[Rfam]
RNA sequence: GUCGUUGUCGCGAUAGUAAUCCAGCUUAGUACGAGAGGAACCGCUGGUUCAGAUACUUGGCUCAGCACUUGGCUGAACAGCCAGUGGUGCGACGCUACCAUCUGUCGGAUUAUGGCUGAACGCCUCUAAGCCAGAAUCCGUGCUAGAAGCGACGAUACCUUUCUCGCCCGGACCGCUUCGAGCCGGUCUAGGGCGGCGCGCGCCGCCGCCCCAGGGCCAUAGAGCACGGCGUCGGGUGCUGCGCGUCGAAGCGCGCGCGGCGCCCCGCCGCAGAGCGCCAUUGCACGGCACGGGCGGGACAAAUCGCCUGUAGACGACUUGAAUGGGAACGCAGGGAUGUACGCAUCUGAGUAGCCUUGCUGCUACGAAAUGCUGAGUCUUAGCUGCUGUUCCGGGAUUUGU
Numbered sequence: 001g002u003c004g005u006u007g008u009c010g011c012g013a014u015a016g017u018a019a020u021c022c023a024g025c026u027u028a029g030u031a032c033g034a035g036a037g038g039a040a041c042c043g044c045u046g047g048u049u050c051a052g053a054u055a056c057u058u059g060g061c062u063c064a065g066c067a068c069u070u071g072g073c074u075g076a077a078c079a080g081c082c083a084g085u086g087g088u089g090c091g092a093c094g095c096u097a098c099c100a101u102c103u104g105u106c107g108g109a110u111u112a113u114g115g116c117u118g119a120a121c122g123c124c125u126c127u128a129a130g131c132c133a134g135a136a137u138c139c140g141u142g143c144u145a146g147a148a149g150c151g152a153c154g155a156u157a158c159c160u161u162u163c164u165c166g167c168c169c170g171g172a173c174c175g176c177u178u179c180g181a182g183c184c185g186g187u188c189u190a191g192g193g194c195g196g197c198g199c200g201c202g203c204c205g206c207c208g209c210c211c212c213a214g215g216g217c218c219a220u221a222g223a224g225c226a227c228g229g230c231g232u233c234g235g236g237u238g239c240u241g242c243g244c245g246u247c248g249a250a251g252c253g254c255g256c257g258c259g260g261c262g263c264c265c266c267g268c269c270g271c272a273g274a275g276c277g278c279c280a281u282u283g284c285a286c287g288g289c290a291c292g293g294g295c296g297g298g299a300c301a302a303a304u305c306g307c308c309u310g311u312a313g314a315c316g317a318c319u320u321g322a323a324u325g326g327g328a329a330c331g332c333a334g335g336g337a338u339g340u341a342c343g344c345a346u347c348u349g350a351g352u353a354g355c356c357u358u359g360c361u362g363c364u365a366c367g368a369a370a371u372g373c374u375g376a377g378u379c380u381u382a383g384c385u386g387c388u389g390u391u392c393c394g395g396g397a398u399u400u401g402u
Base pairs, nucleotide, nucleotide: 004156005155006154007153008152009151010150011149014145015144016143017142019049021047022046023045024044025043050104051103052102053101054100058097059096060095065090066089067088068087069084070083071082072081073080074079106140107139108138113133114132115131116130117129164297165296166295167294168293169292170291301400302399303398304397305396307321310318326393327392328391329390330389331388332386333385334384336379337378343373344372345371346370348369351366352365353364354363355362
RNA: Eukaryotic large subunit ribosomal RNA, nucleotides 3040 to 3441